[Rfam]
RNA: mir-2 microRNA precursor family
RNA sequence: UGUCUCACGAAGUGGUUGUUGUGUGUUUUUACUCAUAUCACAGCCAGCUUUGAUGAGCGACA
Numbered sequence: 001u002g003u004c005u006c007a008c009g010a011a012g013u014g015g016u017u018g019u020u021g022u023g024u025g026u027u028u029u030u031a032c033u034c035a036u037a038u039c040a041c042a043g044c045c046a047g048c049u050u051u052g053a054u055g056a057g058c059g060a061c062a
Stems, first nucleotide, its partner, number of pairs: 005056003008052005013046007021038001024037003